[Rfam]
The family of this 600-nucleotide part of an RNA from an uncultured bacterium is "Bacterial small subunit ribosomal RNA". Pairs were carried over by alignment from the consensus structure, which is taken from published work. It is one of the family's seed sequences. Clan: SSU clan. A reference for the family is Yusupov et al. (2001), "Crystal structure of the ribosome at 5.5 A resolution", Science.

RNA sequence: UGACGGGGGCCCGCACAAGCGGAGGAACAUGUGGUUUAAUUCGAUGAUACGCGAGGAACCUUACCUAGGUUUAAAUGUAGUCUGCAUGACGUAGAAAUAUGUCUUUCCUUCGGGACCGAUUACAAGGUGCUGCAUGGUUGUCGUCAGCUCGUGCCGUGAGGUGUCGGGUUAAGUCCCAUAACGAGCGCAACCCUUGUCUUAUGUUGCCAGCACGUGAUGGUGGGGACUCAUGAGAAACUGCCGGGGUUAACUCGGAGGAAGGCGGGGAUGACGUCAAAUCAGCACGGCCCUUACACCUAGGGCUACACACGUGUUACAAUGGCCGGUACAGAGGGCAGCUACUUGGUGACAAGAUGCGAAUCUCGAAAGCCGGUCGUAGUUCGGAUUGGAGUCUGUAACCCGACUCCAUGAAGUUGGAUUCGCUAGUAAUCGCGCAUCAGCCAUGGCGCGGUGAAUACGUUCCCGGGCCUUGUACACACCGCCCGUCAAGCCAUGGAAGCCGGGGGUGCCUGAAGUCCGUAACCGCAAGGAUCGGCCUAGGGCAAAACUGGUGACUGGGGCUAAGUCGUAACAAGGUAGCCGUACCGGAAGGUGCGGCUG
Numbered sequence: 001u002g003a004c005g006g007g008g009g010c011c012c013g014c015a016c017a018a019g020c021g022g023a024g025g026a027a028c029a030u031g032u033g034g035u036u037u038a039a040u041u042c043g044a045u046g047a048u049a050c051g052c053g054a055g056g057a058a059c060c061u062u063a064c065c066u067a068g069g070u071u072u073a074a075a076u077g078u079a080g081u082c083u084g085c086a087u088g089a090c091g092u093a094g095a096a097a098u099a100u101g102u103c104u105u106u107c108c109u110u111c112g113g114g115a116c117c118g119a120u121u122a123c124a125a126g127g128u129g130c131u132g133c134a135u136g137g138u139u140g141u142c143g144u145c146a147g148c149u150c151g152u153g154c155c156g157u158g159a160g161g162u163g164u165c166g167g168g169u170u171a172a173g174u175c176c177c178a179u180a181a182c183g184a185g186c187g188c189a190a191c192c193c194u195u196g197u198c199u200u201a202u203g204u205u206g207c208c209a210g211c212a213c214g215u216g217a218u219g220g221u222g223g224g225g226a227c228u229c230a231u232g233a234g235a236a237a238c239u240g241c242c243g244g245g246g247u248u249a250a251c252u253c254g255g256a257g258g259a260a261g262g263c264g265g266g267g268a269u270g271a272c273g274u275c276a277a278a279u280c281a282g283c284a285c286g287g288c289c290c291u292u293a294c295a296c297c298u299a300g301g302g303c304u305a306c307a308c309a310c311g312u313g314u315u316a317c318a319a320u321g322g323c324c325g326g327u328a329c330a331g332a333g334g335g336c337a338g339c340u341a342c343u344u345g346g347u348g349a350c351a352a353g354a355u356g357c358g359a360a361u362c363u364c365g366a367a368a369g370c371c372g373g374u375c376g377u378a379g380u381u382c383g384g385a386u387u388g389g390a391g392u393c394u395g396u397a398a399c400c401c402g403a404c405u406c407c408a409u410g411a412a413g414u415u416g417g418a419u420u421c422g423c424u425a426g427u428a429a430u431c432g433c434g435c436a437u438c439a440g441c442c443a444u445g446g447c448g449c450g451g452u453g454a455a456u457a458c459g460u461u462c463c464c465g466g467g468c469c470u471u472g473u474a475c476a477c478a479c480c481g482c483c484c485g486u487c488a489a490g491c492c493a494u495g496g497a498a499g500c501c502g503g504g505g506g507u508g509c510c511u512g513a514a515g516u517c518c519g520u521a522a523c524c525g526c527a528a529g530g531a532u533c534g535g536c537c538u539a540g541g542g543c544a545a546a547a548c549u550g551g552u553g554a555c556u557g558g559g560g561c562u563a564a565g566u567c568g569u570a571a572c573a574a575g576g577u578a579g580c581c582g583u584a585c586c587g588g589a590a591g592g593u594g595c596g597g598c599u600g
Stems, first nucleotide, its partner, number of pairs: 001476002003473003007470007015460002019423005024317001026315008034306002040055004064301007076124003080120003084116001088103006106115003126290002129288004135284002137279003140275001142273002147186006153162003166177003192267004197235007207224002211222003238258002241255005321375007333364003338357002343352003382413001387408007429452007479575001481572001484568002489562004494557003499552005507544004515537001517535003523530002577600010